RNA sequence: UGUAAAUACCCUCCUUGGGUGUUUCCUCCCUAGACUUGGACCGCCGCAAGGCGGUCUUUUUUUGGCAGCCU
Numbered sequence: 001u002g003u004a005a006a007u008a009c010c011c012u013c014c015u016u017g018g019g020u021g022u023u024u025c026c027u028c029c030c031u032a033g034a035c036u037u038g039g040a041c042c043g044c045c046g047c048a049a050g051g052c053g054g055u056c057u058u059u060u061u062u063u064g065g066c067a068g069c070c071u
Base pairs, nucleotide, nucleotide: 008020009019010018011017039056040055041054042053043052044051045050
This 71-nucleotide RNA from Rhizobium tibeticum belongs to the Rfam family "Makes More Granules Regulator RNA (mmgR)". Taxonomically the source falls in Rhizobium (Bacteria, Pseudomonadati, Pseudomonadota, Rhizobiaceae). A search with the family's covariance model found it, with a score of 61 bits. SuhB later renamed mmgR (makes more granules regulator) was a putative non-coding RNA found multiple times in the Agrobacterium tumefaciens genome and related alpha-proteobacteria. Other non-coding RNAs uncovered in the same analysis include: speF, ybhL, metA, and serC.Several studies inSinorhizobium meliloti showed that suhB element is indeed a non-coding RNA:firstly it was detected on Northern blot and called Sm8RNA, secondly in an RNAseq study referred to as SmelC689.The mutant phenotype's (strain lacking the small RNA) cytoplasm contains higher content of polyhydroxybutyrate (PBH)storage granules than wild type strain. By type it is a small RNA.